[Rfam]
RNA sequence: GGGUGUCCCGGUGCAAGGCCGGGGCAGGUUCAUGCGACGGUCGGGCCGCCUCG
Numbered sequence: 001g002g003g004u005g006u007c008c009c010g011g012u013g014c015a016a017g018g019c020c021g022g023g024g025c026a027g028g029u030u031c032a033u034g035c036g037a038c039g040g041u042c043g044g045g046c047c048g049c050c051u052c053g
Stems, first nucleotide, its partner, number of pairs: 005025008035053003039050003
Description
The family of this 53-nucleotide sequence from Aquariibacter albus is "nhaA-I RNA". NCBI's taxonomy places the organism under Bacteria, Pseudomonadota, Betaproteobacteria, Sphaerotilaceae, Aquariibacter. Acidobacteria, Alphaproteobacteria, Betaproteobacteria and Gammaproteobacteria, Verrucomicrobia, cand. division NC10.